[Rfam]
RNA sequence: AAAUGUAAAAGGCAAACUAGUCGAAAGUCUAGGACGCAAAGCUACCGAUCUAAGGGUGUAAAACCUACGACAGCGGAGCCACCAUA
Numbered sequence: 001a002a003a004u005g006u007a008a009a010a011g012g013c014a015a016a017c018u019a020g021u022c023g024a025a026a027g028u029c030u031a032g033g034a035c036g037c038a039a040a041g042c043u044a045c046c047g048a049u050c051u052a053a054g055g056g057u058g059u060a061a062a063a064c065c066u067a068c069g070a071c072a073g074c075g076g077a078g079c080c081a082c083c084a085u086a
Base pairs, nucleotide, nucleotide: 012037013036017032018031019030020029022027041079042078043077045076046075047074049070050069055065056064057063
This 86-nucleotide RNA sequence from Colwellia ponticola belongs to the Rfam family "c-di-GMP-I riboswitch aptamer".
It scores 78 bits against the family's covariance model.
Its family is annotated with cyclic-di-GMP binding in the Gene Ontology.
Taxonomically the source falls in Colwellia (Bacteria, Gammaproteobacteria, Alteromonadales, Colwelliaceae).
The family's consensus secondary structure is taken from published work.